Lysine riboswitch aptamer: a 180-nucleotide RNA from Virgibacillus indicus.
The family's consensus secondary structure is taken from published work.
Nucleotides: 180
Stems, first nucleotide, its partner, number of pairs: 007174005016079009033063007083112003086108008113140006120133003142165007
Number, partner (000 for none) and nucleotide at each position: 001000c002000g003000g004000u005000g006000a007174g008173g009172u010171a011170g012000a013000g014000g015000c016079g017078c018077a019076a020075a021074u022073a023072a024071u025000a026000a027000a028000a029000g030000u031000a032000a033063c034062c035061a036060g037059c038058a039057g040000g041000a042000g043000a044000a045000u046000g047000a048000c049000a050000a051000c052000g053000g054000u055000g056000a057039u058038u059037g060036c061035u062034g063033g064000g065000g066000a067000a068000a069000g070000g071024a072023u073022u074021g075020u076019u077018u078017g079016c080000c081000g082000a083112a084111g085110c086108a087107u088106a089105a090104u091103a092102a093101g094000g095000g096000u097000c098000a099000g100000a101093c102092u103091u104090a105089u106088u107087a108086u109000a110085g111084c112083u113140g114139g115138u116137a117136u118135a119000g120133c121132u122131c123000c124000u125000g126000a127000a128000a129000a130000a131122g132121a133120g134000g135118u136117a137116u138115a139114c140113u141000g142165u143164c144163a145162u146161g147160c148159u149000u150000a151000a152000a153000g154000a155000a156000u157000a158000g159148a160147g161146c162145a163144u164143g165142g166000a167000g168000a169000a170011c171010u172009a173008c174007u175000g176000a177000u178000c179000g180000a